[Rfam]
RNA sequence: CAAUAGGUUUUGGGCAAUGGUGAGCCUGCUAAGCGUGUCAGGUCCGGAAGGAAGCAGCACUACGUAGGCGUCAUCAUGUGCCUAUUUUUUUUACCUAUA
Numbered sequence: 001c002a003a004u005a006g007g008u009u010u011u012g013g014g015c016a017a018u019g020g021u022g023a024g025c026c027u028g029c030u031a032a033g034c035g036u037g038u039c040a041g042g043u044c045c046g047g048a049a050g051g052a053a054g055c056a057g058c059a060c061u062a063c064g065u066a067g068g069c070g071u072c073a074u075c076a077u078g079u080g081c082c083u084a085u086u087u088u089u090u091u092u093a094c095c096u097a098u099a
Base pairs, nucleotide, nucleotide: 004093005092006091007090011084012083013082014081015078017077018076019075020074021073022072024069025068026067027066028065029064035060036059037058038057043052044051045050
RNA: Bacterial small signal recognition particle RNA
Organism: Vagococcus lutrae